[Rfam]
RNA sequence: GCAAGAAGCCUGUGAUGUCUUAGCCACAAUGUCUGAACCUGGCUGAAGGAUUCUUCUGAAGACACACACUUGGGCACUGAGGCUUCCAGGAGA
Numbered sequence: 001g002c003a004a005g006a007a008g009c010c011u012g013u014g015a016u017g018u019c020u021u022a023g024c025c026a027c028a029a030u031g032u033c034u035g036a037a038c039c040u041g042g043c044u045g046a047a048g049g050a051u052u053c054u055u056c057u058g059a060a061g062a063c064a065c066a067c068a069c070u071u072g073g074g075c076a077c078u079g080a081g082g083c084u085u086c087c088a089g090g091a092g093a
Base pairs, nucleotide, nucleotide: 005086006085007084008083009082010081